[Rfam]
RNA sequence: CCAGUCGGCCGGACGGCCGCGGGUGCGCAAGCAUUCGAGGAAAGUCCGGGCUCCACGCGGAUACGGCGGCGGGUAACGCCCGCCGGAAGUAAUUCUAGGGAUAGCGCCACAGAGAAUAGACCGCCGAUGGCGUCGCAAGACGCACAGGCAAGGCUGAAACGGUGGGGUAAGAGCCCACCGCGCCGACCGUAAGGAAGGUGGCACGGCAAGCCCCGCCGGGAGCAAGACCGAAUAGGAGCACACGAGCUUCGGCUCAGGUCCGUCCGCGGAUUGUGCUCGGGUUGGUCGCGAGAACCGUGCGGCGACGCGCGGUCCAGAGGAAUGGUCGUCACCGCGCAAGCGGAACAGAACCCGGCUUACAGGCCGACUGGCAUU
Numbered sequence: 001c002c003a004g005u006c007g008g009c010c011g012g013a014c015g016g017c018c019g020c021g022g023g024u025g026c027g028c029a030a031g032c033a034u035u036c037g038a039g040g041a042a043a044g045u046c047c048g049g050g051c052u053c054c055a056c057g058c059g060g061a062u063a064c065g066g067c068g069g070c071g072g073g074u075a076a077c078g079c080c081c082g083c084c085g086g087a088a089g090u091a092a093u094u095c096u097a098g099g100g101a102u103a104g105c106g107c108c109a110c111a112g113a114g115a116a117u118a119g120a121c122c123g124c125c126g127a128u129g130g131c132g133u134c135g136c137a138a139g140a141c142g143c144a145c146a147g148g149c150a151a152g153g154c155u156g157a158a159a160c161g162g163u164g165g166g167g168u169a170a171g172a173g174c175c176c177a178c179c180g181c182g183c184c185g186a187c188c189g190u191a192a193g194g195a196a197g198g199u200g201g202c203a204c205g206g207c208a209a210g211c212c213c214c215g216c217c218g219g220g221a222g223c224a225a226g227a228c229c230g231a232a233u234a235g236g237a238g239c240a241c242a243c244g245a246g247c248u249u250c251g252g253c254u255c256a257g258g259u260c261c262g263u264c265c266g267c268g269g270a271u272u273g274u275g276c277u278c279g280g281g282u283u284g285g286u287c288g289c290g291a292g293a294a295c296c297g298u299g300c301g302g303c304g305a306c307g308c309g310c311g312g313u314c315c316a317g318a319g320g321a322a323u324g325g326u327c328g329u330c331a332c333c334g335c336g337c338a339a340g341c342g343g344a345a346c347a348g349a350a351c352c353c354g355g356c357u358u359a360c361a362g363g364c365c366g367a368c369u370g371g372c373a374u375u
Stems, first nucleotide, its partner, number of pairs: 001371010011360001012330007020037007042358003046355005051222004060265001064218005069083005084098001085096004099213002104211002106207003121153002123149003130143005161179006180202001181200004187194002226287004236278006258271005294313008
Bacterial RNase P class A: a 375-nucleotide RNA sequence from Vitreimonas silvestris. Rfam links the family to the GO terms dimeric ribonuclease P complex, ribonuclease P activity and tRNA processing.